[Rfam]
RNA sequence: UGGGUCGGCUGGACGGUCGCGUUGCGGCAGCGCCGCACCGAGGAACGUCCGGGCUCCACAGGGCAGGGCGGUGGGUAACACCCACCCGGAGAGAUCCGCGAGACAGUGCCACAGAGAGCAGACCGCCCGACGGCUUCCGCCGGCGGGUAAGGGUGAAAGGGCGGUGUAAGAGACCACCGGGGUCGUGGUGACGCGACCCGCACGGCAAACCUCGCCCGGAGCAAGGCCAGACAGGGGAUGAUGACGCGGCCCGCCGAGUCCCCGGGUAGGCCGCUGGAGCGGCACGGCAACGUGUCGCCGAGAGAGAUGACCGUCCACGGGGCUCACGCCCCCGGACAGAACCCGGCGUACAGGCCGGCCCAUUCG
Number, nucleotide and partner (000 for none) at each position: 001u362002g361003g360004g359005u358006c357007g356008g355009c354010u353011g351012g315013a314014c313015g312016g311017u310018c309019g000020c040021g039022u000023u037024g036025c035026g034027g033028c032029a000030g000031c000032g028033c027034c026035g025036c024037a023038c000039c021040g020041a000042g000043g000044a000045a349046c348047g347048u000049c346050c345051g344052g343053g342054c221055u220056c219057c218058a000059c000060a000061g252062g251063g250064c249065a000066g217067g216068g215069c214070g213071g085072u084073g083074g082075g081076u000077a000078a000079c000080a000081c075082c074083c073084a072085c071086c100087c098088g097089g096090a095091g000092a000093g000094a000095u090096c089097c088098g087099c000100g086101a212102g211103a000104c000105a000106g210107u209108g206109c205110c204111a000112c000113a000114g000115a000116g000117a000118g000119c000120a000121g000122a000123c152124c151125g148126c147127c146128c145129g144130a000131c142132g141133g140134c000135u000136u000137c000138c000139g000140c133141c132142g131143g000144c129145g128146g127147g126148u125149a000150a000151g124152g123153g000154u000155g000156a000157a000158a000159g000160g178161g177162c000163g175164g174165u173166g000167u000168a000169a000170g000171a000172g000173a165174c164175c163176a000177c161178c160179g201180g199181g198182g197183u196184c195185g194186u193187g192188g000189u000190g000191a000192c187193g186194c185195g184196a183197c182198c181199c180200g000201c179202a000203c000204g110205g109206c108207a000208a000209a107210c106211c102212u101213c070214g069215c068216c067217c066218g057219g056220a055221g054222c000223a000224a000225g272226g271227c270228c269229a000230g000231a000232c000233a000234g263235g262236g261237g260238a259239u258240g000241a000242u000243g000244a000245c000246g254247c253248g000249g064250c063251c062252c061253g247254c246255c000256g000257a000258g239259u238260c237261c236262c235263c234264g000265g000266g000267u000268a000269g228270g227271c226272c225273g000274c000275u000276g000277g000278a000279g298280c297281g296282g295283c294284a293285c292286g291287g000288c000289a000290a000291c286292g285293u284294g283295u282296c281297g280298c279299c000300g000301a000302g000303a000304g000305a000306g000307a000308u000309g018310a017311c016312c015313g014314u013315c012316c000317a000318c000319g000320g000321g000322g000323c000324u000325c000326a000327c000328g000329c000330c000331c000332c000333c000334g000335g000336a000337c000338a000339g000340a000341a000342c053343c052344c051345g050346g049347c047348g046349u045350a000351c011352a000353g010354g009355c008356c007357g006358g005359c004360c003361c002362a001363u000364u000365c000366g000